[Rfam]
RNA sequence: GUGUGGGCCGGCGAUGGGGCUCGCCGCGAACCGCCCGUUGGGCUGAUGGCUCCUGCUUCUUC
Numbered sequence: 001g002u003g004u005g006g007g008c009c010g011g012c013g014a015u016g017g018g019g020c021u022c023g024c025c026g027c028g029a030a031c032c033g034c035c036c037g038u039u040g041g042g043c044u045g046a047u048g049g050c051u052c053c054u055g056c057u058u059c060u061u062c
Stems, first nucleotide, its partner, number of pairs: 010025004016053006033043004
Fluoride riboswitch aptamer (crcB RNA motif): a 62-nucleotide RNA sequence from a Nitriliruptorales bacterium. The base pairs follow the family's consensus structure, which is taken from published work.